[Rfam]
RNA sequence: AUUCAUGAUAGAGGCGUGCCUGACAAGAGUAAAGGAUCUUAGAUUAUAGAGAAAUCGUUGAAGAUACUUGAAAGGGGAUGGUACCGAAGGGUGAAUUGACUCUAGAAUUCAUACCUGGUCACUUGGUUAAGAGCUCUGUGAUUGUCACCAAUAUUGGUGGAGUGCUAUCUUGUUU
Dot-bracket structure: ......(((((....(((((...(.......(((.((((......................)))).)))......)...)))))...((((((((((........))))))).)))((((((..(((.....)))..)))))).((((((....))))))....)))))......
The record is a 175-nucleotide RNA sequence from Alkaliphilus serpentinus, which matches "Lysine riboswitch aptamer" in Rfam. Lineage of the source: Bacteria > Bacillati > Clostridia > Peptostreptococcales > Alkaliphilus. A search with the family's covariance model found it, with a score of 97 bits.